[Rfam]
RNA sequence: ACCGCCACGGACGGCGGUGGUUCCAAGCAGAAGCGAGUUUGAAAACUACCACAGCAUAUUCGGAGUUUUCAAACUCGUGGUUUAGUUUUUGCCAUGGACGGCAAAAACUAAACCUGG
Numbered sequence: 001a002c003c004g005c006c007a008c009g010g011a012c013g014g015c016g017g018u019g020g021u022u023c024c025a026a027g028c029a030g031a032a033g034c035g036a037g038u039u040u041g042a043a044a045a046c047u048a049c050c051a052c053a054g055c056a057u058a059u060u061c062g063g064a065g066u067u068u069u070c071a072a073a074c075u076c077g078u079g080g081u082u083u084a085g086u087u088u089u090u091g092c093c094a095u096g097g098a099c100g101g102c103a104a105a106a107a108c109u110a111a112a113c114c115u116g117g
Stems, first nucleotide, its partner, number of pairs: 001018006034077014080113014
TD-2 RNA: a 117-nucleotide sequence from Treponema phagedenis. By type it is a small RNA. For this family Rfam cites "Identification of 22 candidate structured RNAs in bacteria using the CMfinder comparative genomics pipeline" (Weinberg et al., Nucleic Acids Res, 2007). The source organism's lineage runs through Bacteria, Spirochaetota, Spirochaetia, Treponemataceae and Treponema.